[Rfam]
RNA: Glycine riboswitch aptamer
Organism: Pseudomonas sp. 8AS
RNA sequence: CCGCGCCCCGCAGGAGAGUGGGGGCCCCGGGCCCUCCGCCGAAGGCGCAAACUCCCAUAAUCGCUCAGGCUCAGAACUGCGGAUUCCAU
Numbered sequence: 001c002c003g004c005g006c007c008c009c010g011c012a013g014g015a016g017a018g019u020g021g022g023g024g025c026c027c028c029g030g031g032c033c034c035u036c037c038g039c040c041g042a043a044g045g046c047g048c049a050a051a052c053u054c055c056c057a058u059a060a061u062c063g064c065u066c067a068g069g070c071u072c073a074g075a076a077c078u079g080c081g082g083a084u085u086c087c088a089u
Stems, first nucleotide, its partner, number of pairs: 008082006020036004038070003041066002045064003051058001